Rfam assigns this 103-nucleotide RNA sequence from Thermoanaerobacterium thermosaccharolyticum to the family "SAM riboswitch aptamer (S box leader)". Taxonomically the source falls in Thermoanaerobacterium thermosaccharolyticum (Bacteria, Bacillati, Thermoanaerobacterales, Thermoanaerobacteraceae).
[Rfam]
RNA sequence: CUCUUAUCCAGAGAGGUGGAGGGACUGGCCCGAUGAAACCCGGCAACCGGCACGAAAGUGCAAUGGUGCCAAUUCCUGCGGCUUUAAUGCUGAGAGAUGAGAG
Numbered sequence: 001c002u003c004u005u006a007u008c009c010a011g012a013g014a015g016g017u018g019g020a021g022g023g024a025c026u027g028g029c030c031c032g033a034u035g036a037a038a039c040c041c042g043g044c045a046a047c048c049g050g051c052a053c054g055a056a057a058g059u060g061c062a063a064u065g066g067u068g069c070c071a072a073u074u075c076c077u078g079c080g081g082c083u084u085u086a087a088u089g090c091u092g093a094g095a096g097a098u099g100a101g102a103g
Stems, first nucleotide, its partner, number of pairs: 001103008013041001015040003021031003025078001027076002042070004047066002050061003074095001079092004

The base pairs follow the family's consensus structure, which is taken from published work.